RNA sequence: AUCUCAGUGAUGCGUUUCUCCUCCCAUUUGCGCAUCAUGAGUGUUCCCCUCUGAAGGAUUGCUUUUACGCUCCUUCAAAAUUUUAUAGCCGGACGUUUUGUCCGGCUUUUUUUU
Number, nucleotide and partner (000 for none) at each position: 001a042002u000003c041004u040005c039006a000007g000008u037009g036010a035011u000012g033013c032014g031015u030016u000017u000018c000019u000020c000021c000022u000023c000024c000025c000026a000027u000028u000029u000030g015031c014032g013033c012034a000035u010036c009037a008038u000039g005040a004041g003042u001043g000044u000045u000046c000047c000048c000049c000050u000051c000052u077053g076054a075055a074056g073057g072058a071059u000060u000061g000062c000063u000064u000065u000066u000067a000068c000069g000070c000071u058072c057073c056074u055075u054076c053077a052078a000079a000080a000081u000082u000083u000084u000085a109086u000087a107088g106089c105090c104091g103092g102093a101094c100095g000096u000097u000098u000099u000100g094101u093102c092103c091104g090105g089106c088107u087108u000109u085110u000111u000112u000113u000114u000

The family of this 114-nucleotide sequence from Paenochrobactrum gallinarii is "Alphaproteobacterial ar15". Clan: suhB sRNA clan. Rfam links the family to the GO term protein binding. For this family Rfam cites "A survey of sRNA families in alpha-proteobacteria" (del Val et al., RNA Biol, 2012). Lineage of the source: Bacteria > Alphaproteobacteria > Hyphomicrobiales > Brucellaceae > Paenochrobactrum. It scores 61 bits against the family's covariance model. Rfam classes the family as a small RNA.